[Rfam]
RNA sequence: CAGGUGCUGGACCUACUAGCACCACAGAUACAGCUGCUUUGCUGCACCUGGGAUGUCAGGGCAAAGAGGAAGUGGCUAUUUCUACGCUCAGUGCUCAGAACAGUGGGCACUAAGAAUGGUUUGUAGCCAAACAUGC
Numbered sequence: 001c002a003g004g005u006g007c008u009g010g011a012c013c014u015a016c017u018a019g020c021a022c023c024a025c026a027g028a029u030a031c032a033g034c035u036g037c038u039u040u041g042c043u044g045c046a047c048c049u050g051g052g053a054u055g056u057c058a059g060g061g062c063a064a065a066g067a068g069g070a071a072g073u074g075g076c077u078a079u080u081u082c083u084a085c086g087c088u089c090a091g092u093g094c095u096c097a098g099a100a101c102a103g104u105g106g107g108c109a110c111u112a113a114g115a116a117u118g119g120u121u122u123g124u125a126g127c128c129a130a131a132c133a134u135g136c
Base pairs, nucleotide, nucleotide: 004062005061007059008058009057010056025050026049027048074128075127076126082119083118084117087114088113092109093108094107095106096105097104

Rfam assigns this 136-nucleotide RNA from Canis lupus to the family "Small nucleolar RNA SNORA43".
Rfam classes the family as an H/ACA-box small nucleolar RNA.
From the family's description: ACA43 is a member of the H/ACA class of snoRNA that guide the sites of modification of uridines to pseudouridines.
Rfam 15.1 lists 492 matches to the family in 142 species.
The base pairs follow the family's consensus structure, which was predicted with RNAfold.
The source organism's lineage runs through Eukaryota, Deuterostomia, Gnathostomata, Euteleostomi and Canis lupus.
The sequence is in the family's curated seed alignment.